RNA sequence: AUUCUUUCGCAGAGGCAAUAUUGUAGCCUAUGAGGUUUAUCCGAGGCGCGAUCAUUGCUGGUUGAAAAACUUUACCUCAAUACCCCGCCAUGAUGACUUGAUCUACAGUCAUCCUUGGCAAUUUUUUUUGCCAGGUUCUG
Numbered sequence: 001a002u003u004c005u006u007u008c009g010c011a012g013a014g015g016c017a018a019u020a021u022u023g024u025a026g027c028c029u030a031u032g033a034g035g036u037u038u039a040u041c042c043g044a045g046g047c048g049c050g051a052u053c054a055u056u057g058c059u060g061g062u063u064g065a066a067a068a069a070c071u072u073u074a075c076c077u078c079a080a081u082a083c084c085c086c087g088c089c090a091u092g093a094u095g096a097c098u099u100g101a102u103c104u105a106c107a108g109u110c111a112u113c114c115u116u117g118g119c120a121a122u123u124u125u126u127u128u129u130g131c132c133a134g135g136u137u138c139u140g
Base pairs, nucleotide, nucleotide: 020052021051022050023049024048026047027046028045034042035041087119088118089117090115092113093112094111095110096109097108098107
The record is a 140-nucleotide sequence from Cyprinus carpio, which matches "U4 spliceosomal RNA" in Rfam. Taxonomically the source falls in Cyprinus carpio (Eukaryota, Vertebrata, Otomorpha, Cyprinus). It scores 89 bits against the family's covariance model. It is annotated as a spliceosomal small nuclear RNA.